About this RNA
This 94-nucleotide RNA sequence from Clostridium sp. MD294 belongs to the Rfam family "S10-Clostridia ribosomal protein leader". The family's RNA type in Rfam is cis-regulatory leader.
[Rfam]
RNA sequence: UACGAGCGAUGAUACAGAAGGUUGCGGCAUACAAAAUGAGUUGUGUGCAGGUUUUUCUGAGGAGCGAUGUCCAGUUCAAGAAACCGGGCGACAU
Numbered sequence: 001u002a003c004g005a006g007c008g009a010u011g012a013u014a015c016a017g018a019a020g021g022u023u024g025c026g027g028c029a030u031a032c033a034a035a036a037u038g039a040g041u042u043g044u045g046u047g048c049a050g051g052u053u054u055u056u057c058u059g060a061g062g063a064g065c066g067a068u069g070u071c072c073a074g075u076u077c078a079a080g081a082a083a084c085c086g087g088g089c090g091a092c093a094u
Stems, first nucleotide, its partner, number of pairs: 015059002018056004025050001027048008068093004074089004
Rfam's curators put it in the seed alignment.